[Rfam]
Record summary:
Shown here is a 134-nucleotide sequence from Clohesyomyces aquaticus, a member of the family "U4 spliceosomal RNA". For this family Rfam cites "Structures of the fully assembled Saccharomyces cerevisiae spliceosome before activation" (Bai et al., Science, 2018). Pairs were carried over by alignment from the consensus structure, which is taken from published work. The family has 177 seed sequences and 32,178 matches in Rfam 15.1. Taxonomically the source falls in Clohesyomyces (Eukaryota, saccharomyceta, Pezizomycotina, leotiomyceta).
RNA sequence: AACUCUCUGCAGGGCAGUAUGCUUGUCAGUGAAGAUUCGUCUGAGACAGCGUUUUUGCUAGUUGAAAACUACAACUAUGACUGCUUUCGUUGGUAUUCGGAUCGGCAAGGAACUUUUUUCCAAACAAAUACGAU
Numbered sequence: 001a002a003c004u005c006u007c008u009g010c011a012g013g014g015c016a017g018u019a020u021g022c023u024u025g026u027c028a029g030u031g032a033a034g035a036u037u038c039g040u041c042u043g044a045g046a047c048a049g050c051g052u053u054u055u056u057g058c059u060a061g062u063u064g065a066a067a068a069c070u071a072c073a074a075c076u077a078u079g080a081c082u083g084c085u086u087u088c089g090u091u092g093g094u095a096u097u098c099g100g101a102u103c104g105g106c107a108a109g110g111a112a113c114u115u116u117u118u119u120c121c122a123a124a125c126a127a128a129u130a131c132g133a134u
Base pairs, nucleotide, nucleotide: 019052020051021050022049023048025047026046027045033042034041035040085110086109087108089106090105091104092103093102094101